Rfam assigns this 299-nucleotide RNA from Pelodiscus sinensis to the family "Metazoan signal recognition particle RNA". The family's consensus secondary structure is taken from published work. Rfam classes the family as a non-coding RNA gene. Rfam describes the family as follows. The signal recognition particle (SRP) is a universally conserved ribonucleoprotein. It is involved in the co-translational targeting of proteins to membranes. The eukaryotic SRP consists of a 300-nucleotide 7S RNA and six proteins: SRPs 72, 68, 54, 19, 14, and 9. Archaeal SRP consists of a 7S RNA and homologues of the eukaryotic SRP19 and SRP54 proteins. On this family, see Wild et al., Curr Opin Struct Biol 2002: "Towards the structure of the mammalian signal recognition particle".

[Rfam]
Nucleotides: 299
Stems, first nucleotide, its partner, number of pairs: 001045003004023007028042003047297008059286005067276007078269003082265009092256005098250001102249008110238002113236001115234003119229009128167004133162013168174002176219005186211004194203003
Number, partner (000 for none) and nucleotide at each position: 001045g002044c003043c004023g005022g006021g007020c008019c009018c010017c011000g012000u013000g014000g015000c016000g017010g018009g019008g020007g021006c022005c023004u024000g025000u026000g027000a028042u029041c030040c031000c032000a033000g034000c035000g036000c037000c038000c039000g040030g041029g042028a043003g044002g045001c046000u047297g048296a049295g050294g051293c052292c053291g054290g055000c056000g057000g058000a059286u060285c061284c062283c063282u064000u065000g066000a067276g068275c069274u070273c071272g072271g073270g074000a075000g076000u077000u078269c079268u080267g081000g082265g083264c084263u085262g086261c087260a088259g089258g090257g091000g092256g093255c094254u095253g096252u097000g098250c099000c100000g101000a102249g103248c104247g105246g106245g107244u108243g109242u110238c111237c112000g113236c114000a115234c116233c117232g118000a119229g120228g121227g122226c123225g124224g125223c126222a127221u128167c129166g130165a131164c132000a133162u134161g135160g136159g137158g138157g139156u140155c141154c142153c143152u144151g145150g146000g147000g148000a149000g150145c151144c152143g153142g154141g155140g156139g157138u158137c159136c160135c161134c162133a163000g164131g165130u166129u167128g168174c169173c170000u171000a172000a173169g174168g175000a176219g177218g178217g179216g180215c181000g182000a183000a184000c185000c186211g187210g188209c189208c190000c191000a192000g193000g194203u195202c196201g197000g198000g199000a200000a201196c202195g203194g204000a205000g206000c207000a208189g209188g210187u211186c212000a213000a214000a215180g216179c217178u218177c219176c220000c221127g222126u223125g224124c225123c226122g227121c228120u229119c230000a231000g232117c233116g234115g235000g236113g237111g238110g239000a240000u241000g242109g243108c244107g245106c246105c247104u248103g249102c250098g251000a252096a253095c254094a255093g256092c257090c258089c259088c260087u261086g262085c263084a264083g265082c266000g267080c268079a269078g270073c271072c272071c273070g274069g275068g276067c277000g278000a279000g280000a281000c282063a283062g284061g285060g286059a287000g288000a289000c290054c291053c292052g293051g294050c295049c296048u297047c298000c299000u